RNA sequence: UGCAGAUGAUGUAAAAGAAUAUUUGCUAUCUUAACAACACUGAUGACAAUUUCCCACCAAGAUCGCUGAUGCA
Numbered sequence: 001u002g003c004a005g006a007u008g009a010u011g012u013a014a015a016a017g018a019a020u021a022u023u024u025g026c027u028a029u030c031u032u033a034a035c036a037a038c039a040c041u042g043a044u045g046a047c048a049a050u051u052u053c054c055c056a057c058c059a060a061g062a063u064c065g066c067u068g069a070u071g072c073a
Stems, first nucleotide, its partner, number of pairs: 001073004
Dot-bracket structure: ((((.................................................................))))
Shown here is a 73-nucleotide sequence from Sphaeramia orbicularis, a member of the family "Small nucleolar RNA SNORD24".
Lineage of the source: Eukaryota > Teleostei > Gobiaria > Kurtiformes > Sphaeramia.
A reference for the family is Qu et al. (1995), "U24, a novel intron-encoded small nucleolar RNA with two 12 nt long, phylogenetically conserved complementarities to 28S rRNA", Nucleic Acids Res.